[Rfam]
RNA sequence: AUCCUACCACAACGGCUUCCUGGCGUGGCAGGCAAUCACAAUGGAGCA
Numbered sequence: 001a002u003c004c005u006a007c008c009a010c011a012a013c014g015g016c017u018u019c020c021u022g023g024c025g026u027g028g029c030a031g032g033c034a035a036u037c038a039c040a041a042u043g044g045a046g047c048a
Base pairs, nucleotide, nucleotide: 004031005030007028008027009026010025013022014021015047016046017045019044020043
RNA: SAM/SAH riboswitch aptamer
Organism: Tritonibacter aquimaris